[Rfam]
Rfam assigns this 75-nucleotide sequence from Cynoglossus semilaevis to the family "Small nucleolar RNA SNORD66". Rfam classes the family as a C/D-box small nucleolar RNA. The literature on the family includes a 2001 paper in EMBO J by Huttenhofer et al., "RNomics: an experimental approach that identifies 201 candidates for novel, small, non-messenger RNAs in mouse". Rfam links the family to the GO terms nucleolus and RNA processing. snoRNA HBII-142 is part of the C/D family of snoRNAs.
RNA sequence: CUCCAAUGAUGACCUUAAUUUUGUGCCACGUGUCUGGGCCACUGAUCCAAAUGAUGGGAUUGAGGAUCUGAGGAG
Dot-bracket structure: ((((...................................................................))))